The record is a 64-nucleotide RNA sequence from Clostridium autoethanogenum, which matches "RAGATH-18 RNA" in Rfam. NCBI's taxonomy places the organism under Bacteria, Bacillota, Clostridia, Eubacteriales, Clostridium autoethanogenum.

RNA sequence: CCCUUGGAGUGAAAGACCAAACGAAAGUAGCUAACUAGCAAAAUCGAACACUAUGAAAAGGGAA
Number, nucleotide and partner (000 for none) at each position: 001c062002c061003c060004u059005u058006g000007g000008a000009g051010u050011g049012a000013a000014a000015g000016a000017c000018c000019a000020a000021a000022c046023g045024a044025a000026a000027g000028u000029a000030g039031c038032u037033a000034a000035c000036u000037a032038g031039c030040a000041a000042a000043a000044u024045c023046g022047a000048a000049c011050a010051c009052u000053a000054u000055g000056a000057a000058a005059a004060g003061g002062g001063a000064a000